[Rfam]
RNA: Repression of heat shock gene expression (ROSE) element
Organism: Rhizobium tibeticum
RNA sequence: UCGGUCGCCCAAUGGGAAUCGACAUAAGGUCCAGGAGACGCCGGUCGCUCUUGGCGUCUCCUUGUAUCCAUGUUGCUUAUAAGGAGGAUAUGGCUAUGAGGA
Numbered sequence: 001u002c003g004g005u006c007g008c009c010c011a012a013u014g015g016g017a018a019u020c021g022a023c024a025u026a027a028g029g030u031c032c033a034g035g036a037g038a039c040g041c042c043g044g045u046c047g048c049u050c051u052u053g054g055c056g057u058c059u060c061c062u063u064g065u066a067u068c069c070a071u072g073u074u075g076c077u078u079a080u081a082a083g084g085a086g087g088a089u090a091u092g093g094c095u096a097u098g099a100g101g102a
Stems, first nucleotide, its partner, number of pairs: 001022005008016002035060010061100006068093007076086003